About this RNA: The record is a 304-nucleotide RNA sequence from Panagrolaimus davidi, which matches "Metazoan signal recognition particle RNA" in Rfam. The match comes from Rfam's covariance-model search (203 bits). Its family is annotated with signal recognition particle, endoplasmic reticulum targeting and SRP-dependent cotranslational protein targeting to membrane, signal sequence recognition in the Gene Ontology. For this family Rfam cites "Towards the structure of the mammalian signal recognition particle" (Wild et al., Curr Opin Struct Biol, 2002). The base pairs follow the family's consensus structure, which is taken from published work.
[Rfam]
RNA sequence: GCCGGGUGUUGUGGCGGACACUUGUAAAACAGUUUCUUGUUGGCAGGGUUUGGCGGAUGAACUGAGAGAUGGAGUUUCUUCUGUUAGACUAAAAUUGCGGUGACGCGUCUGUCCAGGUCAAGCGUUGCGUCGACAGGGUGUUAGUUUGGGAACUUACUAUUCACCCGGUUGUUCAAAGAGAGAUGAACCGCCCCAGGUCCGAAAGGAAGCAGGGAAAAGUCUCCGCGGAAUGACAGUGACCGGAUUGCAGAUGUGAGUAAUUUGCUAAUAGUUGCCAUCUCAAUAUGUUGAGACCCAAACCUUU
Numbered sequence: 001g002c003c004g005g006g007u008g009u010u011g012u013g014g015c016g017g018a019c020a021c022u023u024g025u026a027a028a029a030c031a032g033u034u035u036c037u038u039g040u041u042g043g044c045a046g047g048g049u050u051u052g053g054c055g056g057a058u059g060a061a062c063u064g065a066g067a068g069a070u071g072g073a074g075u076u077u078c079u080u081c082u083g084u085u086a087g088a089c090u091a092a093a094a095u096u097g098c099g100g101u102g103a104c105g106c107g108u109c110u111g112u113c114c115a116g117g118u119c120a121a122g123c124g125u126u127g128c129g130u131c132g133a134c135a136g137g138g139u140g141u142u143a144g145u146u147u148g149g150g151a152a153c154u155u156a157c158u159a160u161u162c163a164c165c166c167g168g169u170u171g172u173u174c175a176a177a178g179a180g181a182g183a184u185g186a187a188c189c190g191c192c193c194c195a196g197g198u199c200c201g202a203a204a205g206g207a208a209g210c211a212g213g214g215a216a217a218a219g220u221c222u223c224c225g226c227g228g229a230a231u232g233a234c235a236g237u238g239a240c241c242g243g244a245u246u247g248c249a250g251a252u253g254u255g256a257g258u259a260a261u262u263u264g265c266u267a268a269u270a271g272u273u274g275c276c277a278u279c280u281c282a283a284u285a286u287g288u289u290g291a292g293a294c295c296c297a298a299a300c301c302u303u304u
Stems, first nucleotide, its partner, number of pairs: 001044003004023007028041003046302008058291001060289003066281007078274001081271005088266001090264003094261005105254008113243002116241005122234001123232004128227003131171004136166005142159004148153001172178002180223005191214003198207003